RNA sequence: GUCUUAUCAAGAAUAGGUGGAGGGACCGGGCCCUACGAAACCUUGGCAACAGCCGUAAAACGGAAUUGUGCCAAAUCCUGCAGGUAUUUCCUGAACGAUAAGAA
Numbered sequence: 001g002u003c004u005u006a007u008c009a010a011g012a013a014u015a016g017g018u019g020g021a022g023g024g025a026c027c028g029g030g031c032c033c034u035a036c037g038a039a040a041c042c043u044u045g046g047c048a049a050c051a052g053c054c055g056u057a058a059a060a061c062g063g064a065a066u067u068g069u070g071c072c073a074a075a076u077c078c079u080g081c082a083g084g085u086a087u088u089u090c091c092u093g094a095a096c097g098a099u100a101a102g103a104a
Stems, first nucleotide, its partner, number of pairs: 002103007013044001015043004022033003027080004045072004050068002053063003081093004

Rfam assigns this 104-nucleotide RNA sequence to the family "SAM riboswitch aptamer (S box leader)".